RNA sequence: GUGGCCACAGGUGAUGGACCCCACCUGGGGCGAGGCCCCGAACCGCAUCCGCUAAUGGCUCCUGCGACGUU
Numbered sequence: 001g002u003g004g005c006c007a008c009a010g011g012u013g014a015u016g017g018a019c020c021c022c023a024c025c026u027g028g029g030g031c032g033a034g035g036c037c038c039c040g041a042a043c044c045g046c047a048u049c050c051g052c053u054a055a056u057g058g059c060u061c062c063u064g065c066g067a068c069g070u071u
Stems, first nucleotide, its partner, number of pairs: 010025004016062003020058002045052002
This 71-nucleotide RNA from Nostocoides japonicum belongs to the Rfam family "Fluoride riboswitch aptamer (crcB RNA motif)". It scores 36 bits against the family's covariance model. The organism belongs to Nostocoides japonicum, within Bacteria.